[Rfam]
DUF805b RNA: a 33-nucleotide RNA sequence. The family's RNA type in Rfam is cis-regulatory element. The family is grouped with related families in Rfam's "DUF805 clan".
RNA sequence: AAAGCGGAUGCCGAAAAGCUCAUAGAGUAGGCU
Number, nucleotide and partner (000 for none) at each position: 001a000002a000003a020004g019005c018006g000007g000008a000009u000010g032011c031012c030013g000014a000015a000016a000017a000018g005019c004020u003021c000022a000023u000024a000025g000026a000027g000028u000029a000030g012031g011032c010033u000